[Rfam]
RNA sequence: UUACACUCUGAAGAGCGGCAGGACUUGGACGUCGUCCACCCGCACCGAAGGAGCAAACGCUGCCGCCAUCGCGGCCCGGCGUGAAUCUCUCAGGUCCAGAACAGAGGGGGUGUC
Numbered sequence: 001u002u003a004c005a006c007u008c009u010g011a012a013g014a015g016c017g018g019c020a021g022g023a024c025u026u027g028g029a030c031g032u033c034g035u036c037c038a039c040c041c042g043c044a045c046c047g048a049a050g051g052a053g054c055a056a057a058c059g060c061u062g063c064c065g066c067c068a069u070c071g072c073g074g075c076c077c078g079g080c081g082u083g084a085a086u087c088u089c090u091c092a093g094g095u096c097c098a099g100a101a102c103a104g105a106g107g108g109g110g111u112g113u114c
Stems, first nucleotide, its partner, number of pairs: 004108001006106005016042003044095003047091002051089003057082006

Rfam assigns this 114-nucleotide RNA from Duganella sp. CF517 to the family "Glycine riboswitch aptamer". The family has 44 seed sequences and 9,425 matches in Rfam 15.1. It scores 39 bits against the family's covariance model.